Annotation:
A member of the RNA family "mir-2765 microRNA precursor family" from Callosobruchus maculatus, 84 nucleotides long.
[Rfam]
RNA sequence: AGAGCACUGAGGAGUGGUAACUCCACCACCGUUGGCGUAUAUUUGAAUGCCAGCGGUUGAGGAGUUCCUUAACCUCGCUGCCGG
Numbered sequence: 001a002g003a004g005c006a007c008u009g010a011g012g013a014g015u016g017g018u019a020a021c022u023c024c025a026c027c028a029c030c031g032u033u034g035g036c037g038u039a040u041a042u043u044u045g046a047a048u049g050c051c052a053g054c055g056g057u058u059g060a061g062g063a064g065u066u067c068c069u070u071a072a073c074c075u076c077g078c079u080g081c082c083g084g
Stems, first nucleotide, its partner, number of pairs: 004081003008077005016069002019066005026059001029056009
Pairs were carried over by alignment from the consensus structure, which was predicted with RNAalifold.